[Rfam]
RNA sequence: UUUAGAACUCGAGAUAUGGGCUAAACACUGAAAAGUGUUUGGGCUGCAACACAGAUUCAGACUUCUUCGUUGUUGCUAACAUUUGAACUUGAAAAUGGCCUUUUUUAAUCUUGGACUCCCAUGAAAGUUUUAGGCCUAUGUCUUAGCUUUUCAUC
Numbered sequence: 001u002u003u004a005g006a007a008c009u010c011g012a013g014a015u016a017u018g019g020g021c022u023a024a025a026c027a028c029u030g031a032a033a034a035g036u037g038u039u040u041g042g043g044c045u046g047c048a049a050c051a052c053a054g055a056u057u058c059a060g061a062c063u064u065c066u067u068c069g070u071u072g073u074u075g076c077u078a079a080c081a082u083u084u085g086a087a088c089u090u091g092a093a094a095a096u097g098g099c100c101u102u103u104u105u106u107a108a109u110c111u112u113g114g115a116c117u118c119c120c121a122u123g124a125a126a127g128u129u130u131u132a133g134g135c136c137u138a139u140g141u142c143u144u145a146g147c148u149u150u151u152c153a154u155c
Stems, first nucleotide, its partner, number of pairs: 003153001005151003008146002011144010021133005027128003035122003041119003045115001048112002051109001054105002060099001062098002072088003
The family of this 155-nucleotide RNA from Populus alba is "MIR2912 microRNA precursor family". Pairs were carried over by alignment from the consensus structure, which was predicted with RNAalifold. Rfam 15.1 lists 15,051 matches to the family in 15 species. A search with the family's covariance model found it, with a score of 122 bits.